The record is a 66-nucleotide RNA sequence from Glycine max, which matches "MIR4359 microRNA precursor family" in Rfam. It is one of the family's seed sequences. Taxonomically the source falls in Glycine subgen. Soja (Eukaryota, Tracheophyta, Spermatophyta, Phaseoleae).

[Rfam]
RNA sequence: AUGUUAACGAAGUGACUCUAACAUCGGUUUUCAAGAAAAUCGAUGUUAUAGUCGAUUCGUUAACAU
Numbered sequence: 001a002u003g004u005u006a007a008c009g010a011a012g013u014g015a016c017u018c019u020a021a022c023a024u025c026g027g028u029u030u031u032c033a034a035g036a037a038a039a040u041c042g043a044u045g046u047u048a049u050a051g052u053c054g055a056u057u058c059g060u061u062a063a064c065a066u
Stems, first nucleotide, its partner, number of pairs: 001066011013054005019048013